[Rfam]
RNA sequence: UUUCCCCGUCGCGACUGGCGUUGAGGUGGGACACCACCGGGAAGCGACCACAUGGGCAAUCGACCGCACGCCUGGGCCGGCCUG
Numbered sequence: 001u002u003u004c005c006c007c008g009u010c011g012c013g014a015c016u017g018g019c020g021u022u023g024a025g026g027u028g029g030g031a032c033a034c035c036a037c038c039g040g041g042a043a044g045c046g047a048c049c050a051c052a053u054g055g056g057c058a059a060u061c062g063a064c065c066g067c068a069c070g071c072c073u074g075g076g077c078c079g080g081c082c083u084g
Stems, first nucleotide, its partner, number of pairs: 008048005015041002017072005026037004061079002064076002